[Rfam]
RNA sequence: AGUAUUGGUAGAGGCGCACUUUACAAAAAGUAGUAUCUGAUUGAAAGCCAUCGCAAGGUUAGUGUCAGAUAUAAAAGGUGUAGGUGCCGAAGACAAUCAAGGCGUAUGAUUGGUCUGGCAAAAUGAAAUAAGAUUCAUUCUGCUGUUGCAUUAUUUGCAAAGAGCUAUCCUAUUA
Numbered sequence: 001a002g003u004a005u006u007g008g009u010a011g012a013g014g015c016g017c018a019c020u021u022u023a024c025a026a027a028a029a030g031u032a033g034u035a036u037c038u039g040a041u042u043g044a045a046a047g048c049c050a051u052c053g054c055a056a057g058g059u060u061a062g063u064g065u066c067a068g069a070u071a072u073a074a075a076a077g078g079u080g081u082a083g084g085u086g087c088c089g090a091a092g093a094c095a096a097u098c099a100a101g102g103c104g105u106a107u108g109a110u111u112g113g114u115c116u117g118g119c120a121a122a123a124u125g126a127a128a129u130a131a132g133a134u135u136c137a138u139u140c141u142g143c144u145g146u147u148g149c150a151u152u153a154u155u156u157g158c159a160a161a162g163a164g165c166u167a168u169c170c171u172a173u174u175a
Stems, first nucleotide, its partner, number of pairs: 007169005016087006023081003033072008091116003094112006101105001117144004122139006146160005
RNA: Lysine riboswitch aptamer